[Rfam]
RNA sequence: GAUCCGAGAGUAUGGUAAGAAAGAAAUUUCUUUCUUAUCAUACUCUCUAUUAGUGUUAUAGUAAUGUAUAAAAG
Numbered sequence: 001g002a003u004c005c006g007a008g009a010g011u012a013u014g015g016u017a018a019g020a021a022a023g024a025a026a027u028u029u030c031u032u033u034c035u036u037a038u039c040a041u042a043c044u045c046u047c048u049a050u051u052a053g054u055g056u057u058a059u060a061g062u063a064a065u066g067u068a069u070a071a072a073a074g
Stems, first nucleotide, its partner, number of pairs: 006047012019034006
RNA: Plastid-psbM 3UTR RNA